Description:
6S-Flavo RNA: a 111-nucleotide RNA sequence from Aggregatimonas sangjinii.
[Rfam]
RNA sequence: ACUCAACGUUAAUUAAGUUUAAAAAGGGUGAGUUUAGGUCGUAAAAGCAAGCCUUGCUCGUACAAGGAUCCUUGAUCGGUCUGUUAGCCCUAAACCUGUUUUUAGGAGUUU
Numbered sequence: 001a002c003u004c005a006a007c008g009u010u011a012a013u014u015a016a017g018u019u020u021a022a023a024a025a026g027g028g029u030g031a032g033u034u035u036a037g038g039u040c041g042u043a044a045a046a047g048c049a050a051g052c053c054u055u056g057c058u059c060g061u062a063c064a065a066g067g068a069u070c071c072u073u074g075a076u077c078g079g080u081c082u083g084u085u086a087g088c089c090c091u092a093a094a095c096c097u098g099u100u101u102u103u104a105g106g107a108g109u110u111u
Base pairs, nucleotide, nucleotide: 025091026090027089028088029087036082037081038080039079040078045073046072047071052067053066054065055064
Dot-bracket structure: ........................(((((......(((((....(((....((((........))))...)))....)))))....)))))....................
It scores 102 bits against the family's covariance model. The base pairs follow the family's consensus structure, which is taken from published work.